[Rfam]
RNA sequence: AUGCCCUUGCCGGUAGCACCCCCAGAGGAGCCGGGAGUCCGGCCACAACGCAUGGCUCUGCCGGCAAGUCUCUGGAACGAGGCGUCAUG
Numbered sequence: 001a002u003g004c005c006c007u008u009g010c011c012g013g014u015a016g017c018a019c020c021c022c023c024a025g026a027g028g029a030g031c032c033g034g035g036a037g038u039c040c041g042g043c044c045a046c047a048a049c050g051c052a053u054g055g056c057u058c059u060g061c062c063g064g065c066a067a068g069u070c071u072c073u074g075g076a077a078c079g080a081g082g083c084g085u086c087a088u089g
Stems, first nucleotide, its partner, number of pairs: 001085005010064004015059002019055002027049001028046001030043005068078001
RNA: dauA ncRNA motif